[Rfam]
RNA sequence: AUUAGAUAAAGGCAAACCUGAUGAAAAUCAGGGACGCAAAGCUAAGAGUCUAAGGCAAUGAAAAUUGCUACGACAGUCAAGCCGCCAAA
Numbered sequence: 001a002u003u004a005g006a007u008a009a010a011g012g013c014a015a016a017c018c019u020g021a022u023g024a025a026a027a028u029c030a031g032g033g034a035c036g037c038a039a040a041g042c043u044a045a046g047a048g049u050c051u052a053a054g055g056c057a058a059u060g061a062a063a064a065u066u067g068c069u070a071c072g073a074c075a076g077u078c079a080a081g082c083c084g085c086c087a088a089a
Stems, first nucleotide, its partner, number of pairs: 012037002017032006041082003046078002048074003055068004
c-di-GMP-I riboswitch aptamer: an 89-nucleotide RNA sequence from Alkalibaculum bacchi.
The source organism's lineage runs through Bacteria, Bacillati, Bacillota, Eubacteriaceae and Alkalibaculum.
GEMM was predicted in a large-scale screen for bacterial structured RNA regulatory elements.
Rfam links the family to the GO term cyclic-di-GMP binding.